About this RNA: A member of the RNA family "MIR531 microRNA precursor family" from Oryza sativa, 69 nucleotides long. Rfam links the family to the GO terms RISC complex and miRNA-mediated post-transcriptional gene silencing. The source organism's lineage runs through Eukaryota, Viridiplantae, Liliopsida, Oryzinae and Oryza.
Nucleotides: 069
Stems, first nucleotide, its partner, number of pairs: 002066005009059006016052005022046008030037002
Number, partner (000 for none) and nucleotide at each position: 001000c002066c003065g004064a005063g006062c007000c008000u009059u010058g011057c012056u013055c014054g015000c016052c017051g018050g019049g020048g021000c022046u023045g024044c025043g026042u027041g028040c029039c030037g031036c032000c033000a034000u035000a036031g037030c038000u039029g040028g041027c042026g043025c044024g045023c046022a047000u048020c049019c050018c051017c052016g053000u054014c055013g056012a057011g058010c059009g060000u061000u062006g063005c064004u065003c066002g067000a068000c069000g